[Rfam]
RNA sequence: UGACGGGGGGGCACCACAAGGGGUGAAUGCCUGCGGCUCAAUUGGACUCAACGCCGGGAAUCUUACCGGGGGCGACAGCAGGAUGAAGGUCAGGCUGAAGACCUUACCUGACGCGCUGAGGGGUGGUGCAUGGCCGUCGCCAGCUCGUGCCGUGAGGUGUCCUGUUAAGUCAGGCAACGAGCGAGACCCCCGCCCUCAGUUGCCAGCGGGGCCUUACGGCUGGCCGGGCAAACUGGGGGGACUGCCGGCGAAGAGCCGGAGGAAGGAGGGGGCUACGGCAGGUCAGUAUGCCCCUAAUCCCCCGGGCCGCACGCGGGCUGCAAUGGGCGGGACAGCGGGAUGCGACCCCGAGAGGGGGAGCAAAUCCCUGAAACCCGCCCGUGGUUGGGAUCGAGGGUUGCAACUCGCCCUCGUGAACCCGGAAUCCCUAGUAACCGCGGUUCUCCAUACCGCGGUGAAUACGUCCCUGCCCCUUGUACACACCGCCCGUCAACCCACCCGAGUGGACUUGGGGCGAGGCCCAGCUCAAUGGCUGGGUCGAGCUUUGGGUCCGCGAGGGGGGGUAAGUCGUAACAAGG
Numbered sequence: 001u002g003a004c005g006g007g008g009g010g011g012c013a014c015c016a017c018a019a020g021g022g023g024u025g026a027a028u029g030c031c032u033g034c035g036g037c038u039c040a041a042u043u044g045g046a047c048u049c050a051a052c053g054c055c056g057g058g059a060a061u062c063u064u065a066c067c068g069g070g071g072g073c074g075a076c077a078g079c080a081g082g083a084u085g086a087a088g089g090u091c092a093g094g095c096u097g098a099a100g101a102c103c104u105u106a107c108c109u110g111a112c113g114c115g116c117u118g119a120g121g122g123g124u125g126g127u128g129c130a131u132g133g134c135c136g137u138c139g140c141c142a143g144c145u146c147g148u149g150c151c152g153u154g155a156g157g158u159g160u161c162c163u164g165u166u167a168a169g170u171c172a173g174g175c176a177a178c179g180a181g182c183g184a185g186a187c188c189c190c191c192g193c194c195c196u197c198a199g200u201u202g203c204c205a206g207c208g209g210g211g212c213c214u215u216a217c218g219g220c221u222g223g224c225c226g227g228g229c230a231a232a233c234u235g236g237g238g239g240g241a242c243u244g245c246c247g248g249c250g251a252a253g254a255g256c257c258g259g260a261g262g263a264a265g266g267a268g269g270g271g272g273c274u275a276c277g278g279c280a281g282g283u284c285a286g287u288a289u290g291c292c293c294c295u296a297a298u299c300c301c302c303c304g305g306g307c308c309g310c311a312c313g314c315g316g317g318c319u320g321c322a323a324u325g326g327g328c329g330g331g332a333c334a335g336c337g338g339g340a341u342g343c344g345a346c347c348c349c350g351a352g353a354g355g356g357g358g359a360g361c362a363a364a365u366c367c368c369u370g371a372a373a374c375c376c377g378c379c380c381g382u383g384g385u386u387g388g389g390a391u392c393g394a395g396g397g398u399u400g401c402a403a404c405u406c407g408c409c410c411u412c413g414u415g416a417a418c419c420c421g422g423a424a425u426c427c428c429u430a431g432u433a434a435c436c437g438c439g440g441u442u443c444u445c446c447a448u449a450c451c452g453c454g455g456u457g458a459a460u461a462c463g464u465c466c467c468u469g470c471c472c473c474u475u476g477u478a479c480a481c482a483c484c485g486c487c488c489g490u491c492a493a494c495c496c497a498c499c500c501g502a503g504u505g506g507a508c509u510u511g512g513g514g515c516g517a518g519g520c521c522c523a524g525c526u527c528a529a530u531g532g533c534u535g536g537g538u539c540g541a542g543c544u545u546u547g548g549g550u551c552c553g554c555g556a557g558g559g560g561g562g563g564u565a566a567g568u569c570g571u572a573a574c575a576a577g578g
Stems, first nucleotide, its partner, number of pairs: 001480002003477003007474007016464002020428005025321001027319001029318007036310002042057004066305007076118004081112001088108003092104003122294002125292004131288002133283003136279004143182006149158003161174004188271004193239007203228002207226003210221004242262002245259005325380007337368003342361002346357004387418001392413007434456008483577001485574001488570002491567001493564004498559003503554013518539009
A member of the RNA family "Archaeal small subunit ribosomal RNA" from Candidatus Korarchaeum cryptofilum, 578 nucleotides of a longer RNA.
On this family, see Cannone et al., BMC Bioinformatics 2002: "The comparative RNA web (CRW) site: an online database of comparative sequence and structure information for ribosomal, intron, and other RNAs".
The base pairs follow the family's consensus structure, which is taken from published work.
The sequence is in the family's curated seed alignment.